RNA sequence: CCCUGACAGUCACAUGGUGUGACUGACAUUAGCCAGACAGGAGAAUAAAAUG
Numbered sequence: 001c002c003c004u005g006a007c008a009g010u011c012a013c014a015u016g017g018u019g020u021g022a023c024u025g026a027c028a029u030u031a032g033c034c035a036g037a038c039a040g041g042a043g044a045a046u047a048a049a050a051u052g
Base pairs, nucleotide, nucleotide: 002041003040004039005038007025008024009023010022011021
The record is a 52-nucleotide sequence, which matches "Mu-gpT-DE RNA" in Rfam. Pairs were carried over by alignment from the consensus structure, which is taken from published work. Rfam's curators put it in the seed alignment. Rfam classes the family as a small RNA.